Bacterial large subunit ribosomal RNA: a 550-nucleotide part of an RNA from Oceanithermus profundus. The family's consensus secondary structure is taken from published work. Taxonomically the source falls in Oceanithermus profundus (Bacteria, Deinococci, Thermales, Thermaceae). A search with the family's covariance model found it, with a score of 2756 bits.
[Rfam]
RNA sequence: UACGAAGGGCGCACGGUGGAUGCCUUGGCACCCGAGCCGAUGAAGGACGUGGCUACCUGCGAUAAGCCAGGGGGAGCCGGUAGCGGGCUUCGAUCCCUGGAUCUCCGAAUGGGGAAACCCGGCCGGUGGGAACACCGGUCACCGUCACCUCGGUGACGGGGGGAACGUGGGGAACUGAAACAUCUAAGUACCCACAGGAGAGGAAAGCGAAUGCGACUCCCUGAGUAGCGGCGAGCGAAAGGGGACCAGCCUAAACCGCAGUGCUUGCACUGCGGGGUUGUGGGGCCUCCAACAUGCCGAAUCCGUAGCCUAGCCGAAGCGUUCUGGGAAGGCGCGCCAGAGAAGGUGAAAGCCCUGUAGGCGAAAGGUGAGCGGAUAGGCGGAGGUACCCGAGUAGCGUGGGGUUCGUGGAACCCUGCGUGAAUCUGCGCGGCCCACCGCGUAAGGCUAAGUACUCCGGGUGACCGAUAGCGAACCAGUACCGUGAGGGAAAGGUGAAAAGAACCCCGGGAGGGGAGUGAAAUAGAACCUGAAACCGUGCGCUUACAAG
Numbered sequence: 001u002a003c004g005a006a007g008g009g010c011g012c013a014c015g016g017u018g019g020a021u022g023c024c025u026u027g028g029c030a031c032c033c034g035a036g037c038c039g040a041u042g043a044a045g046g047a048c049g050u051g052g053c054u055a056c057c058u059g060c061g062a063u064a065a066g067c068c069a070g071g072g073g074g075a076g077c078c079g080g081u082a083g084c085g086g087g088c089u090u091c092g093a094u095c096c097c098u099g100g101a102u103c104u105c106c107g108a109a110u111g112g113g114g115a116a117a118c119c120c121g122g123c124c125g126g127u128g129g130g131a132a133c134a135c136c137g138g139u140c141a142c143c144g145u146c147a148c149c150u151c152g153g154u155g156a157c158g159g160g161g162g163g164a165a166c167g168u169g170g171g172g173a174a175c176u177g178a179a180a181c182a183u184c185u186a187a188g189u190a191c192c193c194a195c196a197g198g199a200g201a202g203g204a205a206a207g208c209g210a211a212u213g214c215g216a217c218u219c220c221c222u223g224a225g226u227a228g229c230g231g232c233g234a235g236c237g238a239a240a241g242g243g244g245a246c247c248a249g250c251c252u253a254a255a256c257c258g259c260a261g262u263g264c265u266u267g268c269a270c271u272g273c274g275g276g277g278u279u280g281u282g283g284g285g286c287c288u289c290c291a292a293c294a295u296g297c298c299g300a301a302u303c304c305g306u307a308g309c310c311u312a313g314c315c316g317a318a319g320c321g322u323u324c325u326g327g328g329a330a331g332g333c334g335c336g337c338c339a340g341a342g343a344a345g346g347u348g349a350a351a352g353c354c355c356u357g358u359a360g361g362c363g364a365a366a367g368g369u370g371a372g373c374g375g376a377u378a379g380g381c382g383g384a385g386g387u388a389c390c391c392g393a394g395u396a397g398c399g400u401g402g403g404g405u406u407c408g409u410g411g412a413a414c415c416c417u418g419c420g421u422g423a424a425u426c427u428g429c430g431c432g433g434c435c436c437a438c439c440g441c442g443u444a445a446g447g448c449u450a451a452g453u454a455c456u457c458c459g460g461g462u463g464a465c466c467g468a469u470a471g472c473g474a475a476c477c478a479g480u481a482c483c484g485u486g487a488g489g490g491a492a493a494g495g496u497g498a499a500a501a502g503a504a505c506c507c508c509g510g511g512a513g514g515g516g517a518g519u520g521a522a523a524u525a526g527a528a529c530c531u532g533a534a535a536c537c538g539u540g541c542g543c544u545u546a547c548a549a550g
Base pairs, nucleotide, nucleotide: 007545008544009543010542011541012540013539014538015537016536022530023495024494027466028465029463030462031461032460033459034458035456036455037162038161045106046105047104048061049060050059067100068099069098070097071096072095073094076088077087078086111120112119113118121140122139123138124137125136126135127134142159143158144157145156146155147154148153166197167195168194169193170192171191177184178183207214208213217452218245219244220243221242222241228236229235248449249448250447251446256275257274258273259272260271261270262269282391283390284389286386287385288384289383290382301377302376303375304374305373306371308369309368310367311366313362314361315360319335320334321333322332324331338342344356345355346354397421398420399419400418401417402416403415404414405413428443429442430441431440432439482489483488505516506515507514508513